[Rfam]
RNA sequence: GUCGGUUAUGGCGACAUGGCACCCACAACGCCUAUGGGCAAAUUUAUUGGCAGCAUUUGCGCGGUCUGCGGAGUGCUGACGAUAGCGCUUCCAGUUCCUGUAAUUGUAAACAAU
Numbered sequence: 001g002u003c004g005g006u007u008a009u010g011g012c013g014a015c016a017u018g019g020c021a022c023c024c025a026c027a028a029c030g031c032c033u034a035u036g037g038g039c040a041a042a043u044u045u046a047u048u049g050g051c052a053g054c055a056u057u058u059g060c061g062c063g064g065u066c067u068g069c070g071g072a073g074u075g076c077u078g079a080c081g082a083u084a085g086c087g088c089u090u091c092c093a094g095u096u097c098c099u100g101u102a103a104u105u106g107u108a109a110a111c112a113a114u
Base pairs, nucleotide, nucleotide: 001114002113004111007108008107009106010105011104014101015100016099018097019096021095022094037077038076039075040074050062051061

Notes: A member of the RNA family "Potassium channel RNA editing signal" from Stylophora pistillata, 114 nucleotides long. Taxonomically the source falls in Stylophora (Eukaryota, Metazoa, Vacatina, Pocilloporidae). This family represents a group of sequences related to the human potassium channel Kv1.1 hairpin element which directs the efficient modification of an adenosine to inosine by an adenosine deaminase acting on RNA (ADAR). Its family is annotated with adenosine to inosine editing in the Gene Ontology. The match comes from Rfam's covariance-model search (77 bits).